[Rfam]
RNA sequence: GCGUUCUGUCCUUCAUUCCACCGGAGUCUGUGUGAUAGGCAAUCAGAUUUCAGUGGAGUGAAGUAUAAGAAGCA
Numbered sequence: 001g002c003g004u005u006c007u008g009u010c011c012u013u014c015a016u017u018c019c020a021c022c023g024g025a026g027u028c029u030g031u032g033u034g035a036u037a038g039g040c041a042a043u044c045a046g047a048u049u050u051c052a053g054u055g056g057a058g059u060g061a062a063g064u065a066u067a068a069g070a071a072g073c074a
Stems, first nucleotide, its partner, number of pairs: 011063006019055003023051004028046003
mir-205 microRNA precursor family: a 74-nucleotide RNA sequence from Polypterus senegalus. A search with the family's covariance model found it, with a score of 79 bits. The organism belongs to Polypterus, within Eukaryota.